This 381-nucleotide sequence from Candidatus Finniella inopinata belongs to the Rfam family "Alphaproteobacteria transfer-messenger RNA". For this family Rfam cites "Variations on the tmRNA gene" (Mao et al., RNA Biol, 2010). It is annotated as a non-coding RNA gene. The base pairs follow the family's consensus structure, which is taken from published work. From the family's description: Bacterial tmRNA, also known as 10Sa RNA or SsrA, is named for its dual tRNA and mRNA-like properties.
RNA sequence: CUUCUUGAUUUCAUCGCAAAAAGGUCUAUCUUUAUACUGUUGAUGCAAAUCAACUAUGGCGAUAAACAUCAUGUGAAAUAGACGGAGCGGACCCGGGGGCGGUACCCGGCGCCUCCACCAAAAAUAUGGGGGCGAAAUAGGAUCGACGUACGUGAUAAAGAUAUGAUUUUUGCCCGGCAUUGUUCCGCCGUUAUCGGGCUAUUUUUAUAAGUGCCAAUUUAAACAGCACUCGCUUAGGUGCAAACCGUAAUCGUCGGAAAGCUGCAAAUGCUAACCGCGGUCAACGUUUUGCAAUCGCUGCCUAACCUUCAGUAUUACUGUCGGUAAGGUUGUGAAACUUAGCGCGGUACGGGGGCAACCGGGCAACAGAAUGCCCCCACU
Numbered sequence: 001c002u003u004c005u006u007g008a009u010u011u012c013a014u015c016g017c018a019a020a021a022a023g024g025u026c027u028a029u030c031u032u033u034a035u036a037c038u039g040u041u042g043a044u045g046c047a048a049a050u051c052a053a054c055u056a057u058g059g060c061g062a063u064a065a066a067c068a069u070c071a072u073g074u075g076a077a078a079u080a081g082a083c084g085g086a087g088c089g090g091a092c093c094c095g096g097g098g099g100c101g102g103u104a105c106c107c108g109g110c111g112c113c114u115c116c117a118c119c120a121a122a123a124a125u126a127u128g129g130g131g132g133c134g135a136a137a138u139a140g141g142a143u144c145g146a147c148g149u150a151c152g153u154g155a156u157a158a159a160g161a162u163a164u165g166a167u168u169u170u171u172g173c174c175c176g177g178c179a180u181u182g183u184u185c186c187g188c189c190g191u192u193a194u195c196g197g198g199c200u201a202u203u204u205u206u207a208u209a210a211g212u213g214c215c216a217a218u219u220u221a222a223a224c225a226g227c228a229c230u231c232g233c234u235u236a237g238g239u240g241c242a243a244a245c246c247g248u249a250a251u252c253g254u255c256g257g258a259a260a261g262c263u264g265c266a267a268a269u270g271c272u273a274a275c276c277g278c279g280g281u282c283a284a285c286g287u288u289u290u291g292c293a294a295u296c297g298c299u300g301c302c303u304a305a306c307c308u309u310c311a312g313u314a315u316u317a318c319u320g321u322c323g324g325u326a327a328g329g330u331u332g333u334g335a336a337a338c339u340u341a342g343c344g345c346g347g348u349a350c351g352g353g354g355g356c357a358a359c360c361g362g363g364c365a366a367c368a369g370a371a372u373g374c375c376c377c378c379a380c381u
Stems, first nucleotide, its partner, number of pairs: 039054005058174005068167007083152002087149003093109005110134007175190004180201001182199001184198003345361004351378006